[Rfam]
RNA sequence: GCAUCGCCGCCCGGUAAGACCUCCCCCCGAAUCUCUGACGCACUUCCCCGGUGUCAGAGGGUCGGUGGGGGAUCUGGUCGGACGGCGGAGGGGCC
Numbered sequence: 001g002c003a004u005c006g007c008c009g010c011c012c013g014g015u016a017a018g019a020c021c022u023c024c025c026c027c028c029g030a031a032u033c034u035c036u037g038a039c040g041c042a043c044u045u046c047c048c049c050g051g052u053g054u055c056a057g058a059g060g061g062u063c064g065g066u067g068g069g070g071g072a073u074c075u076g077g078u079c080g081g082a083c084g085g086c087g088g089a090g091g092g093g094c095c
Stems, first nucleotide, its partner, number of pairs: 007085003011081003018074002021071005027065004032060010

Overview
mraW RNA: a 95-nucleotide sequence from Cellulomonas sp. Leaf395. The match comes from Rfam's covariance-model search (56 bits). By type it is a cis-regulatory element. Rfam 15.1 lists 851 matches to the family in 821 species. Pairs were carried over by alignment from the consensus structure, which is taken from published work.